[Rfam]
The record is a 211-nucleotide RNA sequence from Pedobacter sp. BAL39, which matches "Pedo-repair RNA" in Rfam. The sequence is in the family's curated seed alignment. The family's consensus secondary structure is taken from published work.
RNA sequence: AACGAAACUUUGCACGACAGACCUCGGAAAUCUCAACAAGCAAAGUAUGGAUUGAUAGACGGCCCGAUUUCUGUAACUUUACCCAGAAAUAUGGGCGUCUUCCGUGCUGCUUGUUGGGGAACUUAGGUUCUCUCCUCUCCGAGGAGGUGUCGUGCGUGCGGGAGGCGACCAUAUUUUAUUGUUCCCUCCUGCUAUUAGGAUCAUUGCUUUA
Numbered sequence: 001a002a003c004g005a006a007a008c009u010u011u012g013c014a015c016g017a018c019a020g021a022c023c024u025c026g027g028a029a030a031u032c033u034c035a036a037c038a039a040g041c042a043a044a045g046u047a048u049g050g051a052u053u054g055a056u057a058g059a060c061g062g063c064c065c066g067a068u069u070u071c072u073g074u075a076a077c078u079u080u081a082c083c084c085a086g087a088a089a090u091a092u093g094g095g096c097g098u099c100u101u102c103c104g105u106g107c108u109g110c111u112u113g114u115u116g117g118g119g120a121a122c123u124u125a126g127g128u129u130c131u132c133u134c135c136u137c138u139c140c141g142a143g144g145a146g147g148u149g150u151c152g153u154g155c156g157u158g159c160g161g162g163a164g165g166c167g168a169c170c171a172u173a174u175u176u177u178a179u180u181g182u183u184c185c186c187u188c189c190u191g192c193u194a195u196u197a198g199g200a201u202c203a204u205u206g207c208u209u210u211a
Stems, first nucleotide, its partner, number of pairs: 012155008022144006034116008044108008057100004062096005067090007117132006134147003158192008167183002170181002

Background: Rfam classes the family as a cis-regulatory element.